mir-156 microRNA precursor family: a 94-nucleotide RNA from Asparagus officinalis.
About the family: This family represents the plant microRNA (miRNA) precursor mir-156.
RNA sequence: AUGACAGAAGAGAGUGAGCACACAGCGGGCGAACUGCAUCGAUCAAGAGGAAGGAAUGCUGUUGCUGUUGCGUGCUCACUGCUCUCUCUGUCAU
Numbered sequence: 001a002u003g004a005c006a007g008a009a010g011a012g013a014g015u016g017a018g019c020a021c022a023c024a025g026c027g028g029g030c031g032a033a034c035u036g037c038a039u040c041g042a043u044c045a046a047g048a049g050g051a052a053g054g055a056a057u058g059c060u061g062u063u064g065c066u067g068u069u070g071c072g073u074g075c076u077c078a079c080u081g082c083u084c085u086c087u088c089u090g091u092c093a094u
Stems, first nucleotide, its partner, number of pairs: 001094008010084003013080009023070006
Lineage of the source: Eukaryota > Viridiplantae > Euphyllophyta > Asparagoideae > Asparagus. Its family is annotated with miRNA-mediated post-transcriptional gene silencing and RISC complex in the Gene Ontology.